[Rfam]
RNA: Bacterial large signal recognition particle RNA
RNA sequence: CCACACUAGUCGGGAAGUUAGCGGUGUCCUGAACCUGCAAUCCGCUAUAGCAGGGAUGAAUUCCGCCUCGAGGGCAUCUGCCGUACAGUCAGCCUUGAGCCGCGCGGCGUUGAGAGACAGGUCUUGCGCAAUCGGAACUUGUGAACCAUGUCAGGCGGGGAACCGAGCAGCAUUAAGCAAAUCCUCCGGUGUGCCGCGAGAGCGCCUGUCUUGAGCUUCGCACUCAAGUAACGUGUAUGGCCGCUGUUCGACAGGCGGUGUGUGG
Numbered sequence: 001c002c003a004c005a006c007u008a009g010u011c012g013g014g015a016a017g018u019u020a021g022c023g024g025u026g027u028c029c030u031g032a033a034c035c036u037g038c039a040a041u042c043c044g045c046u047a048u049a050g051c052a053g054g055g056a057u058g059a060a061u062u063c064c065g066c067c068u069c070g071a072g073g074g075c076a077u078c079u080g081c082c083g084u085a086c087a088g089u090c091a092g093c094c095u096u097g098a099g100c101c102g103c104g105c106g107g108c109g110u111u112g113a114g115a116g117a118c119a120g121g122u123c124u125u126g127c128g129c130a131a132u133c134g135g136a137a138c139u140u141g142u143g144a145a146c147c148a149u150g151u152c153a154g155g156c157g158g159g160g161a162a163c164c165g166a167g168c169a170g171c172a173u174u175a176a177g178c179a180a181a182u183c184c185u186c187c188g189g190u191g192u193g194c195c196g197c198g199a200g201a202g203c204g205c206c207u208g209u210c211u212u213g214a215g216c217u218u219c220g221c222a223c224u225c226a227a228g229u230a231a232c233g234u235g236u237a238u239g240g241c242c243g244c245u246g247u248u249c250g251a252c253a254g255g256c257g258g259u260g261u262g263u264g265g
Stems, first nucleotide, its partner, number of pairs: 001265006009057003012030004017025003034054005063258006072249005078243001080241008092229001095227005103220002106217003114212009123200006129191002132189005137182001139180004148173004156165003